[Rfam]
RNA sequence: UGUAUGUCCUUUUGUACGUUGCUCUGGAUAAGAGCAUCUGCUAAAUGACUAAAU
Numbered sequence: 001u002g003u004a005u006g007u008c009c010u011u012u013u014g015u016a017c018g019u020u021g022c023u024c025u026g027g028a029u030a031a032g033a034g035c036a037u038c039u040g041c042u043a044a045a046u047g048a049c050u051a052a053a054u
Stems, first nucleotide, its partner, number of pairs: 013043001014041003020036006
This 54-nucleotide sequence from Megalops atlanticus belongs to the Rfam family "UnaL2 LINE 3' element". The family's RNA type in Rfam is cis-regulatory element. Lineage of the source: Eukaryota > Actinopteri > Neopterygii > Elopomorpha > Megalops. The match comes from Rfam's covariance-model search (61 bits).